[Rfam]
RNA sequence: GCGCCAGCCGCAGUACUCCCGAUGGUCCUACUCCCCAAGAGGCCAUCCCACGGGGGGCUCAUAUUGUGAGGCUCUGAGCAGGCCUGAUCGCUGGCGUUCUACACCGCACGCCCGGUUCCGAUAGGACCGGGCGUGCGCGUGUAGG
Numbered sequence: 001g002c003g004c005c006a007g008c009c010g011c012a013g014u015a016c017u018c019c020c021g022a023u024g025g026u027c028c029u030a031c032u033c034c035c036c037a038a039g040a041g042g043c044c045a046u047c048c049c050a051c052g053g054g055g056g057g058c059u060c061a062u063a064u065u066g067u068g069a070g071g072c073u074c075u076g077a078g079c080a081g082g083c084c085u086g087a088u089c090g091c092u093g094g095c096g097u098u099c100u101a102c103a104c105c106g107c108a109c110g111c112c113c114g115g116u117u118c119c120g121a122u123a124g125g126a127c128c129g130g131g132c133g134u135g136c137g138c139g140u141g142u143a144g145g
Stems, first nucleotide, its partner, number of pairs: 001097008010067006021046001023045005028039002047056003069085005105137014
RNA: Proteobacterial sRNA sX11
Organism: Stenotrophomonas sp. BIIR7